[Rfam]
RNA sequence: GGGGACGUUACGGAUUCGACAGGGGUGGUCUGAGCUUGAGUUGCGCGUCGGAGGGUUCGGCUCCGUCAGAAACGACACCUUAUAAUAACAGGCAAAACUAACAACAACCUAGCAUUCGCAGCAUAAGCUGUUGAAUCUGCCUUGCAAUUCCAUCGCCCAUGUGGCGUUGUAGGGCUCAACCUUUAGUGGGAUACGACGACUGUUGCCUCUUGAGGCAGUCGGAAGAGACUUCCAAGAUAGCGUACAUGACGCCCUGAUUGCCGGCAUAGUGCUAUGCGAAUCCAAAUAGACAAUCUACACGCGUAGAUGCUUAAGUGUUGGAGCCUCUGGACGCGGGUUCGACUCCCGCCGUCUCCAUAU
Numbered sequence: 001g002g003g004g005a006c007g008u009u010a011c012g013g014a015u016u017c018g019a020c021a022g023g024g025g026u027g028g029u030c031u032g033a034g035c036u037u038g039a040g041u042u043g044c045g046c047g048u049c050g051g052a053g054g055g056u057u058c059g060g061c062u063c064c065g066u067c068a069g070a071a072a073c074g075a076c077a078c079c080u081u082a083u084a085a086u087a088a089c090a091g092g093c094a095a096a097a098c099u100a101a102c103a104a105c106a107a108c109c110u111a112g113c114a115u116u117c118g119c120a121g122c123a124u125a126a127g128c129u130g131u132u133g134a135a136u137c138u139g140c141c142u143u144g145c146a147a148u149u150c151c152a153u154c155g156c157c158c159a160u161g162u163g164g165c166g167u168u169g170u171a172g173g174g175c176u177c178a179a180c181c182u183u184u185a186g187u188g189g190g191a192u193a194c195g196a197c198g199a200c201u202g203u204u205g206c207c208u209c210u211u212g213a214g215g216c217a218g219u220c221g222g223a224a225g226a227g228a229c230u231u232c233c234a235a236g237a238u239a240g241c242g243u244a245c246a247u248g249a250c251g252c253c254c255u256g257a258u259u260g261c262c263g264g265c266a267u268a269g270u271g272c273u274a275u276g277c278g279a280a281u282c283c284a285a286a287u288a289g290a291c292a293a294u295c296u297a298c299a300c301g302c303g304u305a306g307a308u309g310c311u312u313a314a315g316u317g318u319u320g321g322a323g324c325c326u327c328u329g330g331a332c333g334c335g336g337g338u339u340c341g342a343c344u345c346c347c348g349c350c351g352u353c354u355c356c357a358u359a360u
Stems, first nucleotide, its partner, number of pairs: 001356007020329007029320001032318001034316008044303005049065005054079003058074002114136004118131004139175010150164004156190005197221008210236002240277005245271003251265003256295004333349005
RNA: transfer-messenger RNA